[Rfam]
Rfam assigns this 91-nucleotide RNA from Salmonella enterica to the family "Invasion gene-associated RNA". A reference for the family is Pfeiffer et al. (2007), "A small non-coding RNA of the invasion gene island (SPI-1) represses outer membrane protein synthesis from the Salmonella core genome", Mol Microbiol. Pairs were carried over by alignment from the consensus structure, which was predicted with RNAalifold.

RNA sequence: GUCACUUUUACGGUUGGCCAUUUGUCUCUUACGUUGCAUUUAUCAAUCUGCUUUUUGAUACAGCAGCACCUCGCUCGGUCUUUUUUUAUUU
Numbered sequence: 001g002u003c004a005c006u007u008u009u010a011c012g013g014u015u016g017g018c019c020a021u022u023u024g025u026c027u028c029u030u031a032c033g034u035u036g037c038a039u040u041u042a043u044c045a046a047u048c049u050g051c052u053u054u055u056u057g058a059u060a061c062a063g064c065a066g067c068a069c070c071u072c073g074c075u076c077g078g079u080c081u082u083u084u085u086u087u088a089u090u091u
Stems, first nucleotide, its partner, number of pairs: 012070003016026003033067005041060006